[Rfam]
RNA sequence: ACUAAGAUUAUACGUUAACCUCAUAUAAUUUCGGGGAUAUGGCCCGAUCGUUUCUACCCGUCACCGUAAAUGAUGGACUAUGAGGGAGGAUGAAUCAUUG
Numbered sequence: 001a002c003u004a005a006g007a008u009u010a011u012a013c014g015u016u017a018a019c020c021u022c023a024u025a026u027a028a029u030u031u032c033g034g035g036g037a038u039a040u041g042g043c044c045c046g047a048u049c050g051u052u053u054c055u056a057c058c059c060g061u062c063a064c065c066g067u068a069a070a071u072g073a074u075g076g077a078c079u080a081u082g083a084g085g086g087a088g089g090a091u092g093a094a095u096c097a098u099u100g
Stems, first nucleotide, its partner, number of pairs: 019085007031047005058076006
Description:
Purine riboswitch aptamer: a 100-nucleotide RNA sequence from Aquibacillus koreensis. It scores 80 bits against the family's covariance model. Rfam describes the family as follows. Riboswitches are metabolite binding domains within certain messenger RNAs that serve as precision sensors for their corresponding targets.